[Rfam]
RNA: mir-283 microRNA precursor family
Organism: Lucilia cuprina
RNA sequence: UUUGUAAUUCUUAAAAAUAAAUAUCAGCUGGUAAUUCUGGGAUUUAUUUCAUUUGUUACCCUCGGAAUUUCAGUUGGUAUCCGUUUUUUUGAAUUA
Numbered sequence: 001u002u003u004g005u006a007a008u009u010c011u012u013a014a015a016a017a018u019a020a021a022u023a024u025c026a027g028c029u030g031g032u033a034a035u036u037c038u039g040g041g042a043u044u045u046a047u048u049u050c051a052u053u054u055g056u057u058a059c060c061c062u063c064g065g066a067a068u069u070u071c072a073g074u075u076g077g078u079a080u081c082c083g084u085u086u087u088u089u090u091g092a093a094u095u096a
Stems, first nucleotide, its partner, number of pairs: 013088006021080011034068008